[Rfam]
Nucleotides: 083
Base pairs, nucleotide, nucleotide: 002082003081004080005079006078007077
Number, partner (000 for none) and nucleotide at each position: 001000g002082a003081c004080u005079g006078u007077u008000a009000a010000u011000g012000a013000u014000g015000a016000u017000c018000u019000u020000g021000u022000u023000u024000u025000u026000a027000a028000a029000a030000c031000a032000u033000u034000g035000g036000g037000a038000a039000u040000c041000u042000c043000u044000c045000u046000g047000a048000a049000a050000a051000a052000g053000u054000g055000u056000g057000a058000a059000a060000g061000a062000u063000a064000c065000c066000u067000u068000u069000u070000u071000u072000c073000u074000g075000a076000u077007a078006a079005c080004a081003g082002u083000g